Shown here is a 442-nucleotide part of an RNA from Acidihalobacter ferrooxydans, a member of the family "Bacterial large subunit ribosomal RNA".
RNA sequence: CUCCCCGAAAGCUAUUUAGGUAGCGCCUCGUGUAUCACUCUUGGGGGUAGAGCACUGUCAUGGCUAGGGGGCUCGCAAGAGCUUACCAAACCAUUGCAAACUCCGAAUACCAAGAAGUGCAAUCACGGGAGACACACGGCGGGUGCUAACGUCCGUCGUGGAAAGGGAAACAACCCAGACCGCCAGCUAAGGUCCCAAAGUCAUAGCUAAGUGGGAAACGAUGUGGGAAGGCACAGACAGCUAGGAGGUUGGCUUAGAAGCAGCCAUCCUUUAAAGAAAGCGUAAUAGCUCACUAGUCGAGUCGGCCUGCGCGGAAGAUUUAACGGGGCUAAGCUAUGCACCGAAGCUGCGGACUUGCACAAACGUGUAAGUGGUAGGGGAGCGUUCUGUAAGCCUGUGAAGGUGGAUUGUAAGGUCCGCUGGAGGUAUCAGAAGUGCGAAU
Numbered sequence: 001c002u003c004c005c006c007g008a009a010a011g012c013u014a015u016u017u018a019g020g021u022a023g024c025g026c027c028u029c030g031u032g033u034a035u036c037a038c039u040c041u042u043g044g045g046g047g048u049a050g051a052g053c054a055c056u057g058u059c060a061u062g063g064c065u066a067g068g069g070g071g072c073u074c075g076c077a078a079g080a081g082c083u084u085a086c087c088a089a090a091c092c093a094u095u096g097c098a099a100a101c102u103c104c105g106a107a108u109a110c111c112a113a114g115a116a117g118u119g120c121a122a123u124c125a126c127g128g129g130a131g132a133c134a135c136a137c138g139g140c141g142g143g144u145g146c147u148a149a150c151g152u153c154c155g156u157c158g159u160g161g162a163a164a165g166g167g168a169a170a171c172a173a174c175c176c177a178g179a180c181c182g183c184c185a186g187c188u189a190a191g192g193u194c195c196c197a198a199a200g201u202c203a204u205a206g207c208u209a210a211g212u213g214g215g216a217a218a219c220g221a222u223g224u225g226g227g228a229a230g231g232c233a234c235a236g237a238c239a240g241c242u243a244g245g246a247g248g249u250u251g252g253c254u255u256a257g258a259a260g261c262a263g264c265c266a267u268c269c270u271u272u273a274a275a276g277a278a279a280g281c282g283u284a285a286u287a288g289c290u291c292a293c294u295a296g297u298c299g300a301g302u303c304g305g306c307c308u309g310c311g312c313g314g315a316a317g318a319u320u321u322a323a324c325g326g327g328g329c330u331a332a333g334c335u336a337u338g339c340a341c342c343g344a345a346g347c348u349g350c351g352g353a354c355u356u357g358c359a360c361a362a363a364c365g366u367g368u369a370a371g372u373g374g375u376a377g378g379g380g381a382g383c384g385u386u387c388u389g390u391a392a393g394c395c396u397g398u399g400a401a402g403g404u405g406g407a408u409u410g411u412a413a414g415g416u417c418c419g420c421u422g423g424a425g426g427u428a429u430c431a432g433a434a435g436u437g438c439g440a441a442u
Stems, first nucleotide, its partner, number of pairs: 001382006011024005026131001027129006035122001036119003039115006050104001051102002056098003060094004067087002069084005135160010165176003180352004185348003191342003200339001202338006219313002223310005230303003240297005246270003251265003271275001276291001280289002353372008383437001385434005393427003402421008

Description:
The organism belongs to Acidihalobacter, within Bacteria. The literature on the family includes a 2001 paper in Science by Yusupov et al., "Crystal structure of the ribosome at 5.5 A resolution".